[Rfam]
RNA sequence: AGCUUUGCACAGUGGCAGUAUCGUAGCCAAUGAGGUUUAUCUGAGGCACGAUUAUUGCUAAGUGCUAAUUGAAUGCUGUGGGGUUAUCAGUAAGCUAUUGAGGAAACCAGGUUCAUGGAGGUUGAAUAUUCAG
Numbered sequence: 001a002g003c004u005u006u007g008c009a010c011a012g013u014g015g016c017a018g019u020a021u022c023g024u025a026g027c028c029a030a031u032g033a034g035g036u037u038u039a040u041c042u043g044a045g046g047c048a049c050g051a052u053u054a055u056u057g058c059u060a061a062g063u064g065c066u067a068a069u070u071g072a073a074u075g076c077u078g079u080g081g082g083g084u085u086a087u088c089a090g091u092a093a094g095c096u097a098u099u100g101a102g103g104a105a106a107c108c109a110g111g112u113u114c115a116u117g118g119a120g121g122u123u124g125a126a127u128a129u130u131c132a133g
Base pairs, nucleotide, nucleotide: 020052021051022050023049024048026047027046028045034042035041079109080108081107084104085103087101088100089099090098091097092096122133123132124131125130
Rfam assigns this 133-nucleotide RNA from Salvator merianae to the family "U4 spliceosomal RNA". U4 small nuclear RNA (U4 snRNA) is a component of the major U2-dependent spliceosome. The organism belongs to Salvator, within Eukaryota. The family's RNA type in Rfam is spliceosomal small nuclear RNA.